[Rfam]
RNA sequence: GCUUGUUCUCAGGGCAGGGUGAAACUCCCGACCGGCGGUAACACGACCUUUGGCACCCUGUGCCGAACCGUGCAGCCCGCGAGCGUCCGUCCGGUCUUCCGGGCGGGGUCAGCAGAUCUGGUGCAAAGCCAGAGCCGACGGUAACAGUCCGGAUGAAAGAGGAUGAGC
Number, nucleotide and partner (000 for none) at each position: 001g000002c000003u166004u165005g164006u163007u162008c161009u160010c159011a000012g000013g000014g000015c000016a000017g029018g028019g027020u000021g000022a000023a000024a000025c000026u000027c019028c018029c017030g000031a148032c147033c137034g136035g080036c079037g078038g077039u000040a000041a000042c000043a000044c000045g000046a000047c000048c000049u000050u000051u000052g000053g000054c000055a000056c000057c000058c000059u000060g000061u000062g000063c000064c000065g000066a000067a000068c000069c000070g000071u000072g000073c000074a000075g135076c134077c038078c037079g036080c035081g000082a000083g113084c112085g000086u000087c000088c000089g000090u000091c000092c000093g000094g000095u000096c000097u000098u000099c000100c000101g000102g000103g000104c000105g000106g000107g000108g000109u000110c000111a000112g084113c083114a000115g000116a000117u133118c132119u131120g130121g129122u000123g000124c000125a000126a000127a000128g000129c121130c120131a119132g118133a117134g076135c075136c034137g033138a000139c151140g150141g149142u000143a000144a000145c000146a000147g032148u031149c141150c140151g139152g000153a000154u000155g000156a000157a000158a000159g010160a009161g008162g007163a006164u005165g004166a003167g000168c000